[Rfam]
RNA sequence: CCUGGGCGACCCCACCGCCUGUCCCAAGACGGGCCAUGGCACCAACCCCAUCGCCAGCGGCUCGCCCGACGU
Numbered sequence: 001c002c003u004g005g006g007c008g009a010c011c012c013c014a015c016c017g018c019c020u021g022u023c024c025c026a027a028g029a030c031g032g033g034c035c036a037u038g039g040c041a042c043c044a045a046c047c048c049c050a051u052c053g054c055c056a057g058c059g060g061c062u063c064g065c066c067c068g069a070c071g072u
Stems, first nucleotide, its partner, number of pairs: 007071002017040003020036002023033003051069003

This 72-nucleotide RNA from Pseudomonas sp. BAY1663 belongs to the Rfam family "Pseudomonas sRNA P10". The family's consensus secondary structure was predicted with WAR.